[Rfam]
RNA sequence: GUUUGUACCAGAUGCUUCAUUGGUGAAUUCUGUCAAAGAGAGCAUCUUGUACAAAUGA
Numbered sequence: 001g002u003u004u005g006u007a008c009c010a011g012a013u014g015c016u017u018c019a020u021u022g023g024u025g026a027a028u029u030c031u032g033u034c035a036a037a038g039a040g041a042g043c044a045u046c047u048u049g050u051a052c053a054a055a056u057g058a
Base pairs, nucleotide, nucleotide: 002055003054004053005052006051007050008049010047011046012045013044014043015042016041017040020037021036023034

A member of the RNA family "mir-7371 microRNA precursor family" from Vombatus ursinus, 58 nucleotides long. The organism belongs to Vombatus, within Eukaryota. The base pairs follow the family's consensus structure, which was predicted with RNAalifold.